This 46-nucleotide sequence from Cyclonatronum proteinivorum belongs to the Rfam family "Acido-Lenti-1 RNA". Rfam 15.1 lists 2,607 matches to the family in 171 species.
RNA sequence: CACAGGGUUGUCACCCUGUGCUAUGAUAUGCCGCCCCGUUGGGGCU
Numbered sequence: 001c002a003c004a005g006g007g008u009u010g011u012c013a014c015c016c017u018g019u020g021c022u023a024u025g026a027u028a029u030g031c032c033g034c035c036c037c038g039u040u041g042g043g044g045c046u
Base pairs, nucleotide, nucleotide: 001020002019003018004017005016006015007014008013033045034044035043036042037041
Rfam classes the family as a small RNA.